Cyano-1 RNA: a 75-nucleotide RNA sequence from Cyanobacterium stanieri.
By type it is a small RNA.
RNA sequence: AGUUAAGUGAGGAGUUAAAUAUGAGGAACCUUUGGAGUCGAAACAUGGAAAGACGCCCGAAGGUUUUUCUUUUUA
Numbered sequence: 001a002g003u004u005a006a007g008u009g010a011g012g013a014g015u016u017a018a019a020u021a022u023g024a025g026g027a028a029c030c031u032u033u034g035g036a037g038u039c040g041a042a043a044c045a046u047g048g049a050a051a052g053a054c055g056c057c058c059g060a061a062g063g064u065u066u067u068u069c070u071u072u073u074u075a
Stems, first nucleotide, its partner, number of pairs: 024070005029063002034058002037054003

A search with the family's covariance model found it, with a score of 46 bits.